[Rfam]
RNA sequence: UAAAAUUUAAUAGCGCGUUUUAGUAUAUACCUGAGGAUAUGGCUCAGGCGUCUCUACCGGAUUUCCGUAAAUGAUCCGACUACUAAAAAUGGAAGACUCAUG
Dot-bracket structure: .................((((((((....((((((.......)))))).........((((((.........))))))..))))))))..............
Shown here is a 102-nucleotide sequence from Falsibacillus pallidus, a member of the family "Purine riboswitch aptamer".
Lineage of the source: Bacteria > Bacillota > Caryophanales > Bacillaceae > Falsibacillus.
The match comes from Rfam's covariance-model search (80 bits).